[Rfam]
RNA: c-di-AMP riboswitch aptamer (ydaO/yuaA leader)
Organism: Psychromicrobium silvestre
Nucleotides: 194
Stems, first nucleotide, its partner, number of pairs: 001176001005044008046173005055082002083159003091134010137153004
Number, partner (000 for none) and nucleotide at each position: 001176u002000g003000a004000g005044c006043c007042u008041u009040g010039c011038c012037u013000c014000u015000g016000a017000u018000u019000c020000g021000g022000g023000a024000g025000a026000u027000u028000u029000u030000u031000c032000a033000g034000u035000u036000c037012a038011g039010g040009c041008a042007a043006g044005g045000a046173c047172g048171g049170g050169g051000g052000a053000a054000c055082c056081a057000c058000a059000a060000c061000c062000g063000a064000c065000c066000g067000g068000u069000a070000c071000a072000c073000a074000c075000c076000g077000g078000c079000c080000u081056u082055g083159g084158g085157g086000u087000g088000a089000a090000g091134u092133u093132u094131c095130u096129g097128g098127u099126c100125a101000a102000a103000g104000u105000u106000c107000a108000c109000a110000c111000u112000g113000u114000a115000u116000c117000g118000g119000u120000g121000u122000c123000u124000c125100u126099g127098a128097c129096c130095g131094g132093a133092a134091g135000c136000c137153g138152g139151g140150u141000c142000g143000c144000u145000c146000u147000c148000u149000g150140a151139c152138c153137c154000g155000a156000a157085u158084c159083c160000g161000a162000c163000a164000g165000c166000u167000a168000a169050c170049c171048u172047c173046g174000c175000a176001a177000g178000u179000g180000u181000u182000c183000u184000a185000g186000a187000g188000a189000g190000g191000a192000c193000c194000a